[Rfam]
RNA sequence: AUUGAUGUUUCUGUCUCUUUCUUUCUUCCUCUCUGAAAUAUAUAAAAAUAUAUAUUAACAAAAGAAAAAAAAGGAAUUUUCAGGGCUGCUAGUCAAGAUUAAGUGGUAGUCUAUUUCUCCAACAGAA
Numbered sequence: 001a002u003u004g005a006u007g008u009u010u011c012u013g014u015c016u017c018u019u020u021c022u023u024u025c026u027u028c029c030u031c032u033c034u035g036a037a038a039u040a041u042a043u044a045a046a047a048a049u050a051u052a053u054a055u056u057a058a059c060a061a062a063a064g065a066a067a068a069a070a071a072a073g074g075a076a077u078u079u080u081c082a083g084g085g086c087u088g089c090u091a092g093u094c095a096a097g098a099u100u101a102a103g104u105g106g107u108a109g110u111c112u113a114u115u116u117c118u119c120c121a122a123c124a125g126a127a
Stems, first nucleotide, its partner, number of pairs: 002058004014042001016040001018038004073120003085107002089103001090101004
Dot-bracket structure: .((((........(.(.((((.............)))).).)............))))..............(((.........((..(((((....)))).)..))..........))).......
RNA: Small nucleolar RNA U109